[Rfam]
RNA sequence: ACCGGUCCUCGGUAGUGGCUCCCGGGCAGCACAAGCCCCGUGAGCUUCGAUCGAAGACCGGC
Numbered sequence: 001a002c003c004g005g006u007c008c009u010c011g012g013u014a015g016u017g018g019c020u021c022c023c024g025g026g027c028a029g030c031a032c033a034a035g036c037c038c039c040g041u042g043a044g045c046u047u048c049g050a051u052c053g054a055a056g057a058c059c060g061g062c
Stems, first nucleotide, its partner, number of pairs: 002061006009054005017046005023040004029036002
The record is a 62-nucleotide RNA sequence from Dactylosporangium siamense, which matches "Actino-pnp RNA" in Rfam.
Rfam classes the family as a cis-regulatory element.
A search with the family's covariance model found it, with a score of 67 bits.
The base pairs follow the family's consensus structure, which is taken from published work.